[Rfam]
RNA sequence: AUGAUAAGUGCGGGAGAGACCAAAUAUAAUUUAUGUAAUUUGGCGCCGAAGGAAUAAGUCAUAAAGUUUGCCAUUUUAUGAUGAUGAUCUCAGGCAAAAGAACCGUACUUUGACG
Numbered sequence: 001a002u003g004a005u006a007a008g009u010g011c012g013g014g015a016g017a018g019a020c021c022a023a024a025u026a027u028a029a030u031u032u033a034u035g036u037a038a039u040u041u042g043g044c045g046c047c048g049a050a051g052g053a054a055u056a057a058g059u060c061a062u063a064a065a066g067u068u069u070g071c072c073a074u075u076u077u078a079u080g081a082u083g084a085u086g087a088u089c090u091c092a093g094g095c096a097a098a099a100g101a102a103c104c105g106u107a108c109u110u111u112g113a114c115g
Stems, first nucleotide, its partner, number of pairs: 006110008020043006045095003048091002052089002058082010
Annotation: Glycine riboswitch aptamer: a 115-nucleotide RNA from Schnuerera ultunensis. It scores 58 bits against the family's covariance model. The organism belongs to Schnuerera ultunensis, within Bacteria.